Record summary
c-di-AMP riboswitch aptamer (ydaO/yuaA leader): a 153-nucleotide RNA sequence from Pseudarthrobacter sp. NBSH8. The source organism's lineage runs through Bacteria, Actinomycetota, Actinomycetes, Micrococcaceae and Pseudarthrobacter. A search with the family's covariance model found it, with a score of 52 bits.
[Rfam]
RNA sequence: GCUUCCCGGAUUCCGUUUUCAGAGGCAGAGGCGGGGGACCCACCGUCCCGGGCACCAAGAGCCCUUUGGGGUUAAGUCAACACGUGAUUGUGCCGUGUGGCCGGAUGCCCUCAUCCGAACCCGACAGCUAACUCCGCAGGUGUGAGAGGCGAU
Numbered sequence: 001g002c003u004u005c006c007c008g009g010a011u012u013c014c015g016u017u018u019u020c021a022g023a024g025g026c027a028g029a030g031g032c033g034g035g036g037g038a039c040c041c042a043c044c045g046u047c048c049c050g051g052g053c054a055c056c057a058a059g060a061g062c063c064c065u066u067u068g069g070g071g072u073u074a075a076g077u078c079a080a081c082a083c084g085u086g087a088u089u090g091u092g093c094c095g096u097g098u099g100g101c102c103g104g105a106u107g108c109c110c111u112c113a114u115c116c117g118a119a120c121c122c123g124a125c126a127g128c129u130a131a132c133u134c135c136g137c138a139g140g141u142g143u144g145a146g147a148g149g150c151g152a153u
Stems, first nucleotide, its partner, number of pairs: 004142001006140002011030003031137006041068002069122003077100003103116004